About this RNA
Stem loopII regulatory element in POLB: an 86-nucleotide RNA from Heterocephalus glaber. The literature on the family includes a 2007 paper in Nucleic Acids Res by Sarnowska et al., "Hairpin structure within the 3'UTR of DNA polymerase beta mRNA acts as a post-transcriptional regulatory element and interacts with Hax-1". A search with the family's covariance model found it, with a score of 55 bits. The source organism's lineage runs through Eukaryota, Tetrapoda, Eutheria, Bathyergidae and Heterocephalus.

RNA sequence: AGCUCUAUAGGGGUCUAACUUAUUUCCUAACCUUUUCUAUAGAAAGCUAUUUGGUGUUAUUAAAUGGUCAUUUUCUCCUUCAUGCU
Numbered sequence: 001a002g003c004u005c006u007a008u009a010g011g012g013g014u015c016u017a018a019c020u021u022a023u024u025u026c027c028u029a030a031c032c033u034u035u036u037c038u039a040u041a042g043a044a045a046g047c048u049a050u051u052u053g054g055u056g057u058u059a060u061u062a063a064a065u066g067g068u069c070a071u072u073u074u075c076u077c078c079u080u081c082a083u084g085c086u
Stems, first nucleotide, its partner, number of pairs: 009079004016062003024054002030048001032046005